[Rfam]
RNA sequence: AUGCCUUAAACUAAUGAGUAAGGAAAAUAAUGAGACUAGGGGAUCCUAGGCUCCUGGUAAACUACCAGAGGAAUUUCUGAAGGGGUACAGGUCGCCCCUCGGUGACCCUCCUACUUUGAGGGAUGCUUGAGGUGUAGUGAUCUACCCC
Numbered sequence: 001a002u003g004c005c006u007u008a009a010a011c012u013a014a015u016g017a018g019u020a021a022g023g024a025a026a027a028u029a030a031u032g033a034g035a036c037u038a039g040g041g042g043a044u045c046c047u048a049g050g051c052u053c054c055u056g057g058u059a060a061a062c063u064a065c066c067a068g069a070g071g072a073a074u075u076u077c078u079g080a081a082g083g084g085g086u087a088c089a090g091g092u093c094g095c096c097c098c099u100c101g102g103u104g105a106c107c108c109u110c111c112u113a114c115u116u117u118g119a120g121g122g123a124u125g126c127u128u129g130a131g132g133u134g135u136a137g138u139g140a141u142c143u144a145c146c147c148c
Stems, first nucleotide, its partner, number of pairs: 004023005032053003036049004054068005082148005089143007097132002100129001101127004106122005
U12 minor spliceosomal RNA: a 148-nucleotide RNA sequence from Lottia gigantea.
By type it is a spliceosomal small nuclear RNA.
Lineage of the source: Eukaryota > Opisthokonta > Eumetazoa > Gastropoda > Lottia.
Pairs were carried over by alignment from the consensus structure.